[Rfam]
RNA: TPP riboswitch aptamer (THI element)
RNA sequence: UGCACGCAUGACAGGUGUUCGACACAUGCUAGGUGGUUUGAAUACACACAGCAUGGUCGUUCUGAGAUUAUACUGUCACAACUUGAUCUAGAUAAUACUAGCGAAAGGACAUGCGUGGCUUGAAUU
Numbered sequence: 001u002g003c004a005c006g007c008a009u010g011a012c013a014g015g016u017g018u019u020c021g022a023c024a025c026a027u028g029c030u031a032g033g034u035g036g037u038u039u040g041a042a043u044a045c046a047c048a049c050a051g052c053a054u055g056g057u058c059g060u061u062c063u064g065a066g067a068u069u070a071u072a073c074u075g076u077c078a079c080a081a082c083u084u085g086a087u088c089u090a091g092a093u094a095a096u097a098c099u100a101g102c103g104a105a106a107g108g109a110c111a112u113g114c115g116u117g118g119c120u121u122g123a124a125u126u
Stems, first nucleotide, its partner, number of pairs: 006114005011076004016070001017062001020059004082107003088101004